[Rfam]
RNA sequence: AUAUGUAUAGGCGAUGGAGUUCGCCAUUAAACGCGAAAGCUAAUGACUCCUACUCUUUU
Numbered sequence: 001a002u003a004u005g006u007a008u009a010g011g012c013g014a015u016g017g018a019g020u021u022c023g024c025c026a027u028u029a030a031a032c033g034c035g036a037a038a039g040c041u042a043a044u045g046a047c048u049c050c051u052a053c054u055c056u057u058u059u
Stems, first nucleotide, its partner, number of pairs: 010025004016050006033040002
RNA: Fluoride riboswitch aptamer (crcB RNA motif)
Organism: Romboutsia maritimum